[Rfam]
RNA sequence: CUCUUAUCAAGAGAGGCUGAGGGACUGGCCCGAUGACGCCCGGCAACCACGCGGUAACGCAAAUGGUGCCAAUUCCAGCAGGAUUUCACCAUCCUGGGAGAUAAGAG
Number, nucleotide and partner (000 for none) at each position: 001c107002u106003c105004u104005u103006a102007u101008c100009a000010a000011g000012a000013g041014a000015g040016g039017c038018u000019g000020a000021g031022g030023g029024a000025c078026u077027g076028g075029c023030c022031c021032g000033a000034u000035g000036a000037c000038g017039c016040c015041c013042g070043g069044c068045a067046a000047c066048c065049a000050c000051g060052c059053g000054g000055u000056a000057a000058c000059g052060c051061a000062a000063a000064u000065g048066g047067u045068g044069c043070c042071a000072a000073u000074u099075c028076c027077a026078g025079c096080a095081g094082g093083a092084u091085u000086u000087c000088a000089c000090c000091a084092u083093c082094c081095u080096g079097g000098g000099a074100g008101a007102u006103a005104a004105g003106a002107g001
SAM riboswitch aptamer (S box leader): a 107-nucleotide sequence from Sporomusaceae bacterium FL31. The base pairs follow the family's consensus structure, which is taken from published work. The match comes from Rfam's covariance-model search (94 bits).